[Rfam]
7SK RNA: a 304-nucleotide RNA from Ovis aries. It scores 245 bits against the family's covariance model. For this family Rfam cites "Transcription: surprising role for an elusive small nuclear RNA" (Blencowe, Curr Biol, 2002). By type it is a non-coding RNA gene. Taxonomically the source falls in Ovis (Eukaryota, Eutheria, Laurasiatheria, Pecora). The family's consensus secondary structure is taken from published work.

RNA sequence: GGAUGUGAGGGCAAUCUGGUUGUGACAUCUGUCACCCCACUGAUUGCCAGGGUUGAUUUGGCUGAUCUGGCUGGCCAGGCGGGUGUCCCCUUCCUCCCUCACCGUUCCAUGUGUGUCCCUCCCGAAGCUGCACACUCGGUCAAAGAGGAUGACCAUCCCUGAUAGAGGAGGACCGGUCUUCGGUCAAGGGUAUAUGAGUAGCUGCGCUCCCCUGCUAGAACUUCCAAACAAGCUGUCAAGUGUCCUGUAAGAUACUACUUUUCUGAGUUCAGAGCCAGGGAAACCUGGAGGUUUGUGUGCAUCU
Numbered sequence: 001g002g003a004u005g006u007g008a009g010g011g012c013a014a015u016c017u018g019g020u021u022g023u024g025a026c027a028u029c030u031g032u033c034a035c036c037c038c039a040c041u042g043a044u045u046g047c048c049a050g051g052g053u054u055g056a057u058u059u060g061g062c063u064g065a066u067c068u069g070g071c072u073g074g075c076c077a078g079g080c081g082g083g084u085g086u087c088c089c090c091u092u093c094c095u096c097c098c099u100c101a102c103c104g105u106u107c108c109a110u111g112u113g114u115g116u117c118c119c120u121c122c123c124g125a126a127g128c129u130g131c132a133c134a135c136u137c138g139g140u141c142a143a144a145g146a147g148g149a150u151g152a153c154c155a156u157c158c159c160u161g162a163u164a165g166a167g168g169a170g171g172a173c174c175g176g177u178c179u180u181c182g183g184u185c186a187a188g189g190g191u192a193u194a195u196g197a198g199u200a201g202c203u204g205c206g207c208u209c210c211c212c213u214g215c216u217a218g219a220a221c222u223u224c225c226a227a228a229c230a231a232g233c234u235g236u237c238a239a240g241u242g243u244c245c246u247g248u249a250a251g252a253u254a255c256u257a258c259u260u261u262u263c264u265g266a267g268u269u270c271a272g273a274g275c276c277a278g279g280g281a282a283a284c285c286u287g288g289a290g291g292u293u294u295g296u297g298u299g300c301a302u303c304u
Base pairs, nucleotide, nucleotide: 001108002107003106005102006101007100008099009098010097011096014092018090019089024087025086026085027084028083029082030081031080032079033078035074036073037070038069039068042067043066044065045064046062047061048060116171117170118168119167120166121165122139123138124137125136127135140162141161142160147158148157149156201303203301207297211295214292215291222290223289224288225287231286232285